[Rfam]
Rfam assigns this 120-nucleotide sequence from Aquibacillus koreensis to the family "epsC RNA". Rfam classes the family as a cis-regulatory element. A search with the family's covariance model found it, with a score of 111 bits. Rfam 15.1 lists 450 matches to the family in 334 species. Lineage of the source: Bacteria > Bacillati > Bacilli > Bacillaceae > Aquibacillus.
Nucleotides: 120
Base pairs, nucleotide, nucleotide: 001019002018003017004016007034008033009032010031011030012029013028035103036102037101038100039098040097041096042095043094044093045092046091049070050069051068052067053066054065055064056063073087074086075085076084106120107119108118109117110116
Number, partner (000 for none) and nucleotide at each position: 001019u002018g003017g004016u005000g006000a007034u008033g009032u010031c011030u012029c013028c014000u015000u016004a017003c018002c019001a020000c021000u022000a023000u024000c025000a026000a027000u028013g029012g030011a031010g032009g033008c034007a035103c036102u037101c038100g039098g040097c041096u042095g043094u044093u045092c046091u047000g048000u049070g050069g051068g052067u053066g054065a055064a056063c057000u058000a059000g060000u061000a062000g063056g064055u065054u066053c067052a068051c069050c070049u071000u072000a073087g074086a075085c076084a077000c078000u079000g080000u081000u082000g083000u084076u085075g086074u087073c088000a089000g090000u091046g092045g093044a094043a095042u096041g097040g098039c099000g100038u101037g102036a103035g104000g105000u106120g107119g108118g109117g110116u111000u112000a113000g114000a115000u116110g117109c118108c119107c120106u